[Rfam]
RNA sequence: AGAUGAGAGAAACACCCGUCCACGGGGAACCGUGGACGACAGGCCGUGGCCUCCCCAGCUUCGACCUGGUCGUGCCUCGCGCACACACCCGGAGCCGGCAGGCUCCGGAUCUCCUCACCGAUCGGA
Numbered sequence: 001a002g003a004u005g006a007g008a009g010a011a012a013c014a015c016c017c018g019u020c021c022a023c024g025g026g027g028a029a030c031c032g033u034g035g036a037c038g039a040c041a042g043g044c045c046g047u048g049g050c051c052u053c054c055c056c057a058g059c060u061u062c063g064a065c066c067u068g069g070u071c072g073u074g075c076c077u078c079g080c081g082c083a084c085a086c087a088c089c090c091g092g093a094g095c096c097g098g099c100a101g102g103c104u105c106c107g108g109a110u111c112u113c114c115u116c117a118c119c120g121a122u123c124g125g126a
Base pairs, nucleotide, nucleotide: 004117005116006115007114009113010112017038018037019036020035021034022033023032024031025030040068041067042066043065045063046062048060049059050058072084073083074082075081089108090107091106092105093104094103095102096101118125119124
Dot-bracket structure: ...((((.((......(((((((((....))))))))).((((.((.(((.......))).)).))))...((((.....))))....((((((((....))))))))...))))))((....)).
Description: The family of this 126-nucleotide RNA sequence from Streptomyces sp. NTH33 is "Streptomyces RNA 5676". The pairing is the family consensus, mapped onto this sequence. Taxonomically the source falls in Streptomyces (Bacteria, Bacillati, Actinomycetes, Streptomycetaceae). The family's RNA type in Rfam is small RNA. Identified by deep sequencing of transcriptome at the end of exponential growth phase. On this family, see Vockenhuber et al., RNA Biol 2011: "Deep sequencing-based identification of small non-coding RNAs in Streptomyces coelicolor".